[Rfam]
RNA: mir-172 microRNA precursor family
RNA sequence: UUUAUUGCUAAUGCAGCAUCAUCAAGAUUCACACUCAAUUUUAAUGACAAAUAUAUGCGAAUCUUGAUAGUGCUGCAUUUGCAAAAGA
Numbered sequence: 001u002u003u004a005u006u007g008c009u010a011a012u013g014c015a016g017c018a019u020c021a022u023c024a025a026g027a028u029u030c031a032c033a034c035u036c037a038a039u040u041u042u043a044a045u046g047a048c049a050a051a052u053a054u055a056u057g058c059g060a061a062u063c064u065u066g067a068u069a070g071u072g073c074u075g076c077a078u079u080u081g082c083a084a085a086a087g088a
Stems, first nucleotide, its partner, number of pairs: 010079010021068010032057002